[Rfam]
RNA: Bacterial RNase P class A
RNA sequence: CAAGUAAGAUAAAUGGUCGCGGCUGUCAGCCGUAAGGCACCCGAAAGGGGACAGGUGAGGAAAGUCCGGGCUUCACAGGGCAGGAUGCCGGAUAACGUCCGGUGGAGGUGACUCCAAGGAUAGUGCAACAGAAAUGAACCGCCAGGCUUUGCCUGGUAAGGGUGGAAGGGCAGUGUAAGAGACUACCGCCCGUCCGGUAACGGACGGGGCAUAUGUAAACCCCAUCCGAAGCAAGACCGAAUAGAAAGCAACAGAUUUGCCCGAUCUGCUUUCAGGUAGGUCGCUUGAGCCUGCCGGCGACGGCAGGACUAGAUAGAUGACCAUUCACGACAUAACCCGGCUUAUCGUUUUGCUUGCCGG
Numbered sequence: 001c002a003a004g005u006a007a008g009a010u011a012a013a014u015g016g017u018c019g020c021g022g023c024u025g026u027c028a029g030c031c032g033u034a035a036g037g038c039a040c041c042c043g044a045a046a047g048g049g050g051a052c053a054g055g056u057g058a059g060g061a062a063a064g065u066c067c068g069g070g071c072u073u074c075a076c077a078g079g080g081c082a083g084g085a086u087g088c089c090g091g092a093u094a095a096c097g098u099c100c101g102g103u104g105g106a107g108g109u110g111a112c113u114c115c116a117a118g119g120a121u122a123g124u125g126c127a128a129c130a131g132a133a134a135u136g137a138a139c140c141g142c143c144a145g146g147c148u149u150u151g152c153c154u155g156g157u158a159a160g161g162g163u164g165g166a167a168g169g170g171c172a173g174u175g176u177a178a179g180a181g182a183c184u185a186c187c188g189c190c191c192g193u194c195c196g197g198u199a200a201c202g203g204a205c206g207g208g209g210c211a212u213a214u215g216u217a218a219a220c221c222c223c224a225u226c227c228g229a230a231g232c233a234a235g236a237c238c239g240a241a242u243a244g245a246a247a248g249c250a251a252c253a254g255a256u257u258u259g260c261c262c263g264a265u266c267u268g269c270u271u272u273c274a275g276g277u278a279g280g281u282c283g284c285u286u287g288a289g290c291c292u293g294c295c296g297g298c299g300a301c302g303g304c305a306g307g308a309c310u311a312g313a314u315a316g317a318u319g320a321c322c323a324u325u326c327a328c329g330a331c332a333u334a335a336c337c338c339g340g341c342u343u344a345u346c347g348u349u350u351u352g353c354u355u356g357c358c359g360g
Stems, first nucleotide, its partner, number of pairs: 001356010011345001012325007020057002023054005062343003066340005071231004078262004083227005088102005103117001104115004118222002123220002125216003139161002141157007169187002172184003188210001189208008235282004244273006253267005290307007